[Rfam]
RNA sequence: AGCCGGUGAUGAUAAAACUCUAGGCUUGUUUCUCAAACAUUCGCAGUGGCCGCCUAAAGCUUUCGCCCUGCCGGGCUUGAGAGCUAAUGCAGCUUCCAAACCUUCCUUGGAUAUCUGAGACU
Numbered sequence: 001a002g003c004c005g006g007u008g009a010u011g012a013u014a015a016a017a018c019u020c021u022a023g024g025c026u027u028g029u030u031u032c033u034c035a036a037a038c039a040u041u042c043g044c045a046g047u048g049g050c051c052g053c054c055u056a057a058a059g060c061u062u063u064c065g066c067c068c069u070g071c072c073g074g075g076c077u078u079g080a081g082a083g084c085u086a087a088u089g090c091a092g093c094u095u096c097c098a099a100a101c102c103u104u105c106c107u108u109g110g111a112u113a114u115c116u117g118a119g120a121c122u
Base pairs, nucleotide, nucleotide: 001122002121004119059084060083061082062081063080064079
About this RNA
Shown here is a 122-nucleotide RNA sequence from Ceratodon purpureus, a member of the family "Small nucleolar RNA SNORD14". Rfam describes the family as follows. U14 small nucleolar RNA (U14 snoRNA) is required for early cleavages of eukaryotic precursor rRNAs. In yeasts, this molecule possess a stem-loop region (known as the Y-domain) which is essential for function. On this family, see Samarsky et al., Nucleic Acids Res 1996: "An essential domain in Saccharomyces cerevisiae U14 snoRNA is absent in vertebrates, but conserved in other yeasts". NCBI's taxonomy places the organism under Eukaryota, Bryopsida, Pseudoditrichales, Ditrichaceae, Ceratodon.